The family of this 138-nucleotide RNA sequence from Polycladospora coralii is "FMN riboswitch aptamer (RFN element)". A search with the family's covariance model found it, with a score of 113 bits. The RFN element is a highly conserved domain that is found frequently in the 5'-untranslated regions of prokaryotic mRNAs that encode for flavin mononucleotide (FMN) biosynthesis and transport proteins. NCBI's taxonomy places the organism under Bacteria, Bacillati, Bacillota, Thermoactinomycetaceae, Polycladospora.

RNA sequence: CAUAUCCUUCGGGGCUGGGUGAAACUCCCGACCGGCGGUGAUGGUCAGAAUGACCUUAGUCCGUGACCCGCAUAUGAUGCGGUGGAUUCGGUGUAAAUCCGAAGCCGACAGUGAAAGUCUGGAUGGGAGAAGGAUGAA
Numbered sequence: 001c002a003u004a005u006c007c008u009u010c011g012g013g014g015c016u017g018g019g020u021g022a023a024a025c026u027c028c029c030g031a032c033c034g035g036c037g038g039u040g041a042u043g044g045u046c047a048g049a050a051u052g053a054c055c056u057u058a059g060u061c062c063g064u065g066a067c068c069c070g071c072a073u074a075u076g077a078u079g080c081g082g083u084g085g086a087u088u089c090g091g092u093g094u095a096a097a098u099c100c101g102a103a104g105c106c107g108a109c110a111g112u113g114a115a116a117g118u119c120u121g122g123a124u125g126g127g128a129g130a131a132g133g134a135u136g137a138a
Stems, first nucleotide, its partner, number of pairs: 003136008017029003031118002033107002035064004059105002068082002087103005109121003